Background: The record is a 143-nucleotide RNA from Neotamlana nanhaiensis, which matches "Flavo-1 RNA" in Rfam. The base pairs follow the family's consensus structure, which is taken from published work. It scores 49 bits against the family's covariance model.
RNA sequence: GCGCAUUAGGGAUUGUAGUGAAAAUCCUUUUUGCCUGUAUUGAAACUAAAUUACAGCUAACAACCUUUUAUUAAUUUGAAAAAAUUUUGAAACCAAGUUGAAACUGUAUCGCAAAAAGAUUGCAACGGAAAGCCCGACCACGA
Numbered sequence: 001g002c003g004c005a006u007u008a009g010g011g012a013u014u015g016u017a018g019u020g021a022a023a024a025u026c027c028u029u030u031u032u033g034c035c036u037g038u039a040u041u042g043a044a045a046c047u048a049a050a051u052u053a054c055a056g057c058u059a060a061c062a063a064c065c066u067u068u069u070a071u072u073a074a075u076u077u078g079a080a081a082a083a084a085u086u087u088u089g090a091a092a093c094c095a096a097g098u099u100g101a102a103a104c105u106g107u108a109u110c111g112c113a114a115a116a117a118g119a120u121u122g123c124a125a126c127g128g129a130a131a132g133c134c135c136g137a138c139c140a141c142g143a
Stems, first nucleotide, its partner, number of pairs: 009135003013131002018126002023121004029116006